[Rfam]
RNA: Vibrio RNA AS9
RNA sequence: CUGGUCACAGCGCUCUUCGGUCAGGGUCAGGCAGAUCAGGCCGCGGCCAUACUUGGCCAUGAAAUUGAUCGCCUCCGGGGUGACAUGCUCGGCUGCCAUGGUCA
Numbered sequence: 001c002u003g004g005u006c007a008c009a010g011c012g013c014u015c016u017u018c019g020g021u022c023a024g025g026g027u028c029a030g031g032c033a034g035a036u037c038a039g040g041c042c043g044c045g046g047c048c049a050u051a052c053u054u055g056g057c058c059a060u061g062a063a064a065u066u067g068a069u070c071g072c073c074u075c076c077g078g079g080g081u082g083a084c085a086u087g088c089u090c091g092g093c094u095g096c097c098a099u100g101g102u103c104a
Base pairs, nucleotide, nucleotide: 003058004057005056006055007054010027011026013024014023035050036049039047041045066104067103068102069101070100071096072095075092076091077090078088080086